[Rfam]
RNA sequence: UCGCAUAGGUUAGUAUUACCUAUGCGAGCGAAGUAGCAGUAGCA
Numbered sequence: 001u002c003g004c005a006u007a008g009g010u011u012a013g014u015a016u017u018a019c020c021u022a023u024g025c026g027a028g029c030g031a032a033g034u035a036g037c038a039g040u041a042g043c044a
Stems, first nucleotide, its partner, number of pairs: 001027009

Shown here is a 44-nucleotide sequence, a member of the family "ssNA-helicase RNA".
Pairs were carried over by alignment from the consensus structure, which is taken from published work.